[Rfam]
RNA sequence: UGAGGUUGCAAUGAGGAUUCACAGCUCCCUCUUCUGAGUUCAAGUUGAGGAAAUCAGCUGGCAGAAUCGAACCUAUGACUUAUUAGCCAUCACUGAGCAA
Numbered sequence: 001u002g003a004g005g006u007u008g009c010a011a012u013g014a015g016g017a018u019u020c021a022c023a024g025c026u027c028c029c030u031c032u033u034c035u036g037a038g039u040u041c042a043a044g045u046u047g048a049g050g051a052a053a054u055c056a057g058c059u060g061g062c063a064g065a066a067u068c069g070a071a072c073c074u075a076u077g078a079c080u081u082a083u084u085a086g087c088c089a090u091c092a093c094u095g096a097g098c099a100a
Stems, first nucleotide, its partner, number of pairs: 006100004